The record is a 58-nucleotide RNA from Mytilus coruscus, which matches "Selenocysteine insertion sequence 1" in Rfam. Pairs were carried over by alignment from the consensus structure, which is taken from published work. The match comes from Rfam's covariance-model search (39 bits). Lineage of the source: Eukaryota > Metazoa > Autobranchia > Mytiloidea > Mytilus. By type it is a cis-regulatory element.
RNA sequence: GACUGUUCAUGACGUUAAAAUACUAAAUCCCUGGAGUGUGUUUUAGUUGAUUUCAGUC
Numbered sequence: 001g002a003c004u005g006u007u008c009a010u011g012a013c014g015u016u017a018a019a020a021u022a023c024u025a026a027a028u029c030c031c032u033g034g035a036g037u038g039u040g041u042u043u044u045a046g047u048u049g050a051u052u053u054c055a056g057u058c
Stems, first nucleotide, its partner, number of pairs: 001058005014047010029036001